[Rfam]
Overview: c-di-GMP-I riboswitch aptamer: a 91-nucleotide RNA sequence from Alkalimonas amylolytica.
RNA sequence: CACUUCGAAAGGCAAGACAUCCGAAAGGGUGAUCGCGCAAAGCUUCAGAUCUAACGGAAACUCUGUUUCCCAUGAUAGCUGGGCUGCCAUU
Number, nucleotide and partner (000 for none) at each position: 001c000002a000003c000004u000005u000006c000007g000008a000009a000010a000011g000012g038013c037014a000015a000016g000017a033018c031019a030020u029021c028022c027023g000024a000025a000026a000027g022028g021029g020030u019031g018032a000033u017034c000035g000036c000037g013038c012039a000040a000041a085042g084043c083044u082045u000046c081047a080048g079049a076050u075051c074052u000053a000054a000055c000056g070057g069058a068059a067060a066061c065062u000063c000064u000065g061066u060067u059068u058069c057070c056071c000072a000073u000074g051075a050076u049077a000078g000079c048080u047081g046082g044083g043084c042085u041086g000087c000088c000089a000090u000091u000
The source organism's lineage runs through Bacteria, Pseudomonadati, Pseudomonadota, Gammaproteobacteria and Alkalimonas.